[Rfam]
RNA: pan motif
RNA sequence: AGGGCAGUAUCCUGUUUGGAACUGCACCAAAAAAGUUUCAUGUUGUCAUUAUUAAAAGAUUGAUUCUGCCUUGAUCCAAAAGGACUGGGACAGAGGG
Numbered sequence: 001a002g003g004g005c006a007g008u009a010u011c012c013u014g015u016u017u018g019g020a021a022c023u024g025c026a027c028c029a030a031a032a033a034a035g036u037u038u039c040a041u042g043u044u045g046u047c048a049u050u051a052u053u054a055a056a057a058g059a060u061u062g063a064u065u066c067u068g069c070c071u072u073g074a075u076c077c078a079a080a081a082g083g084a085c086u087g088g089g090a091c092a093g094a095g096g097g
Base pairs, nucleotide, nucleotide: 002028003027004025005024006023007022008021010020011019066093067092068091069089070088071087073085075084076083077082